RNA sequence: GAGUUAAUACAGCUCUUUUAGAAUUUUAUUUAGCAGGUUUUCUGAUUUGGUCAGAAAAUCCAA
Numbered sequence: 001g002a003g004u005u006a007a008u009a010c011a012g013c014u015c016u017u018u019u020a021g022a023a024u025u026u027u028a029u030u031u032a033g034c035a036g037g038u039u040u041u042c043u044g045a046u047u048u049g050g051u052c053a054g055a056a057a058a059u060c061c062a063a
Stems, first nucleotide, its partner, number of pairs: 036060011
RNA: U7 small nuclear RNA